The family of this 74-nucleotide RNA sequence from Dethiosulfatibacter aminovorans is "tRNA". Lineage of the source: Bacteria > Bacillati > Tissierellia > Dethiosulfatibacter > Dethiosulfatibacter aminovorans.
[Rfam]
RNA sequence: GCACCUGUAGCUCAGAAGGAUAGAGCAGUGCCCUCCUAAGGCAUGUGCCGGGGGUUCGACUCCUCCCAGGUGCA
Numbered sequence: 001g002c003a004c005c006u007g008u009a010g011c012u013c014a015g016a017a018g019g020a021u022a023g024a025g026c027a028g029u030g031c032c033c034u035c036c037u038a039a040g041g042c043a044u045g046u047g048c049c050g051g052g053g054g055u056u057c058g059a060c061u062c063c064u065c066c067c068a069g070g071u072g073c074a
Stems, first nucleotide, its partner, number of pairs: 001073007010026004028044005050066005
About the family: Transfer RNA (tRNA) molecules are approximately 80 nucleotides in length. The base pairs follow the family's consensus structure, which is taken from published work.